[Rfam]
This 76-nucleotide RNA sequence from Polypterus senegalus belongs to the Rfam family "Small nucleolar RNA SNORD79". The base pairs follow the family's consensus structure, which was predicted with PFOLD. The family has 28 seed sequences and 784 matches in Rfam 15.1. The literature on the family includes a 2002 paper in Mol Cell Biol by Galardi et al., "Purified box C/D snoRNPs are able to reproduce site-specific 2'-O-methylation of target RNA in vitro". A search with the family's covariance model found it, with a score of 68 bits. snoRNA U79 or Z22 is found in intron 7 of the gas5 gene in humans and is also present in mice. Clan: SNORD74 clan. It is annotated as a C/D-box small nucleolar RNA.
Nucleotides: 076
Stems, first nucleotide, its partner, number of pairs: 001076007
Number, partner (000 for none) and nucleotide at each position: 001076u002075a003074c004073u005072g006071u007070u008000a009000a010000u011000g012000a013000u014000g015000a016000u017000u018000u019000u020000g021000a022000a023000a024000a025000a026000u027000g028000g029000g030000a031000a032000u033000c034000u035000c036000u037000c038000u039000g040000a041000a042000u043000g044000a045000g046000u047000g048000u049000g050000a051000a052000a053000g054000a055000c056000u057000c058000a059000a060000g061000a062000a063000u064000u065000c066000c067000u068000g069000a070007a071006a072005c073004a074003g075002u076001a